Overview: A member of the RNA family "Plastid-ycf2 5UTR RNA" from Gossypium australe, 75 nucleotides long. It is annotated as a cis-regulatory element. From the family's description: Plastid ycf2 is a non-coding RNA (ncRNA) recognised in plastids. It was found in the prime untranslated region (5UTR) of ycf2 genes, it presents a tRNA-like motif which suggests it can be involved in mRNA maturation, particularly involved in defining the precise 5' end of the transcript. NCBI's taxonomy places the organism under Eukaryota, Viridiplantae, Tracheophyta, malvids, Gossypium.
RNA sequence: AUGCAUCCAGUAAAAAUUGAACUUACGAAUUCACUAAUUAUGAGUUGGGCACUUUAACCAUUCAACCAUGGAUGC
Numbered sequence: 001a002u003g004c005a006u007c008c009a010g011u012a013a014a015a016a017u018u019g020a021a022c023u024u025a026c027g028a029a030u031u032c033a034c035u036a037a038u039u040a041u042g043a044g045u046u047g048g049g050c051a052c053u054u055u056a057a058c059c060a061u062u063c064a065a066c067c068a069u070g071g072a073u074g075c
Base pairs, nucleotide, nucleotide: 003075004074005073006072007071008070010026011025012024013023040069041068042067044066045065046064047063048062049061